[Rfam]
RNA sequence: AACGUUCAUCCUACGGGACGGAAGUAGGCUUUAUGCUGAAGGAACGCACC
Numbered sequence: 001a002a003c004g005u006u007c008a009u010c011c012u013a014c015g016g017g018a019c020g021g022a023a024g025u026a027g028g029c030u031u032u033a034u035g036c037u038g039a040a041g042g043a044a045c046g047c048a049c050c
Stems, first nucleotide, its partner, number of pairs: 003046005009018003021047001027037003
This 50-nucleotide RNA sequence belongs to the Rfam family "Glutamine riboswitch aptamer (glnA leader)". Pairs were carried over by alignment from the consensus structure, which is taken from published work. On this family, see Ames and Breaker, RNA Biol 2011: "Bacterial aptamers that selectively bind glutamine". Rfam links the family to the GO term glutamine binding.